RT-8 RNA: a 90-nucleotide sequence from Mannheimia haemolytica. The base pairs follow the family's consensus structure, which is taken from published work.
RNA sequence: AUGGGUAUCCUAAGGUACCUAGGCUAUAUAAAGACUGUUAACUAUUCAAAUAGUUAGGGACAACCGCAAUCCUUAGUCUUUAGUUUUGCU
Numbered sequence: 001a002u003g004g005g006u007a008u009c010c011u012a013a014g015g016u017a018c019c020u021a022g023g024c025u026a027u028a029u030a031a032a033g034a035c036u037g038u039u040a041a042c043u044a045u046u047c048a049a050a051u052a053g054u055u056a057g058g059g060a061c062a063a064c065c066g067c068a069a070u071c072c073u074u075a076g077u078c079u080u081u082a083g084u085u086u087u088g089c090u
Base pairs, nucleotide, nucleotide: 003020004019005018006017007016008015009014029082030081031080032079033078034077035076036075039056040055041054042053043052044051045050
Rfam's curators put it in the seed alignment.